[Rfam]
RNA sequence: CAGAAAUGGGGGCUCCUUUCAGCCCAGAAACAAUAAUGACAAAAUAUUUUGAUUAUUUUCGUUGUUUGGACUGAAGGGAGCUCCUAAUUCUU
Dot-bracket structure: ......((((((((((((..((.(((((....................................))))).))..))))))))))))......
Description
A member of the RNA family "MIR319 microRNA precursor family" from Asparagus officinalis, 92 nucleotides long. Its family is annotated with miRNA-mediated post-transcriptional gene silencing and RISC complex in the Gene Ontology. It scores 78 bits against the family's covariance model. Rfam 15.1 lists 168 matches to the family in 79 species. Pairs were carried over by alignment from the consensus structure, which was predicted with RNAalifold.